[Rfam]
RNA sequence: UCGCACCGGGUGGAAGAGCCCCCGUCCUGGGAACCCAGGCCGGGGCGCCGGAGGAGCAAGUCUCCCCACGAAUCUCUCAGGCCCAGCUACCGCUCGGUGAGG
Numbered sequence: 001u002c003g004c005a006c007c008g009g010g011u012g013g014a015a016g017a018g019c020c021c022c023c024g025u026c027c028u029g030g031g032a033a034c035c036c037a038g039g040c041c042g043g044g045g046c047g048c049c050g051g052a053g054g055a056g057c058a059a060g061u062c063u064c065c066c067c068a069c070g071a072a073u074c075u076c077u078c079a080g081g082c083c084c085a086g087c088u089a090c091c092g093c094u095c096g097g098u099g100a101g102g
Stems, first nucleotide, its partner, number of pairs: 006097008020045004047082003050078002054076003060069002
Dot-bracket structure: .....((((((((......((((..................)))).(((((..(((...((......))....))))).))).......)))))))).....

This 102-nucleotide RNA from Nakamurella leprariae belongs to the Rfam family "Glycine riboswitch aptamer". The organism belongs to Nakamurella, within Bacteria. Its family is annotated with glycine biosynthetic process in the Gene Ontology. The pairing is the family consensus, mapped onto this sequence. From the family's description: This family represents the bacterial glycine riboswitch.